[Rfam]
RNA: small nucleolar RNA snoR126
Organism: Eragrostis curvula
Nucleotides: 090
Stems, first nucleotide, its partner, number of pairs: 001089004
Number, partner (000 for none) and nucleotide at each position: 001089u002088g003087g004086c005000u006000g007000g008000g009000a010000u011000g012000a013000c014000a015000a016000a017000a018000a019000c020000a021000c022000u023000u024000u025000u026000u027000u028000g029000a030000u031000u032000c033000u034000g035000a036000u037000a038000c039000u040000a041000g042000a043000u044000u045000g046000a047000u048000u049000g050000a051000a052000g053000g054000a055000c056000c057000a058000u059000u060000u061000g062000a063000u064000g065000a066000g067000c068000u069000u070000u071000g072000u073000g074000c075000g076000u077000g078000u079000c080000g081000u082000c083000u084000g085000a086004g087003c088002u089001a090000a